[Rfam]
RNA sequence: AGGUAAUGUCUCCUGCACCUAUAUCACUGGAGGCACUCGAUCAUGCUGUGGGCCGCGAACGGCCUUAGACGUAGAGCGUCGGUGGUGUGGGGUGAGGAGGGGUUAGAUGCCCU
Numbered sequence: 001a002g003g004u005a006a007u008g009u010c011u012c013c014u015g016c017a018c019c020u021a022u023a024u025c026a027c028u029g030g031a032g033g034c035a036c037u038c039g040a041u042c043a044u045g046c047u048g049u050g051g052g053c054c055g056c057g058a059a060c061g062g063c064c065u066u067a068g069a070c071g072u073a074g075a076g077c078g079u080c081g082g083u084g085g086u087g088u089g090g091g092g093u094g095a096g097g098a099g100g101g102g103u104u105a106g107a108u109g110c111c112c113u
Stems, first nucleotide, its partner, number of pairs: 001020004007035007036096004041090007050065006068080004099113005
This 113-nucleotide RNA from Paenibacillus sp. Leaf72 belongs to the Rfam family "epsC RNA". The family has 30 seed sequences and 450 matches in Rfam 15.1. NCBI's taxonomy places the organism under Bacteria, Bacillati, Caryophanales, Paenibacillaceae, Paenibacillus. Pairs were carried over by alignment from the consensus structure, which is taken from published work. It is annotated as a cis-regulatory element. A search with the family's covariance model found it, with a score of 97 bits.